[Rfam]
RNA sequence: GUUCCCUACGGAGUGCUCAGGUCCGCCGCAUCUCCUGGGUCCGUGGGGCAGACCGGUGGGGAGGCGGGACGAAGAGUGGCCUCCUCGAUACCCCGCCUUCCACCGGUCACCCU
Numbered sequence: 001g002u003u004c005c006c007u008a009c010g011g012a013g014u015g016c017u018c019a020g021g022u023c024c025g026c027c028g029c030a031u032c033u034c035c036u037g038g039g040u041c042c043g044u045g046g047g048g049c050a051g052a053c054c055g056g057u058g059g060g061g062a063g064g065c066g067g068g069a070c071g072a073a074g075a076g077u078g079g080c081c082u083c084c085u086c087g088a089u090a091c092c093c094c095g096c097c098u099u100c101c102a103c104c105g106g107u108c109a110c111c112c113u
Stems, first nucleotide, its partner, number of pairs: 004048007016039006051108011
RNA: EcpR1